SAH (S-adenosyl-L-homocysteine) riboswitch aptamer: a 79-nucleotide RNA sequence from Ramlibacter sp. Taxonomically the source falls in Ramlibacter (Bacteria, Pseudomonadati, Pseudomonadota, Burkholderiales).
RNA sequence: UAACUCAAGGAGCGUUGCAACGAAAUGCCGGAAAACCGCAGAUCGUCAGGCUUGGGUGACUCAACGACGCUCGCCGAAC
Numbered sequence: 001u002a003a004c005u006c007a008a009g010g011a012g013c014g015u016u017g018c019a020a021c022g023a024a025a026u027g028c029c030g031g032a033a034a035a036c037c038g039c040a041g042a043u044c045g046u047c048a049g050g051c052u053u054g055g056g057u058g059a060c061u062c063a064a065c066g067a068c069g070c071u072c073g074c075c076g077a078a079c
Stems, first nucleotide, its partner, number of pairs: 003057006021045003026040003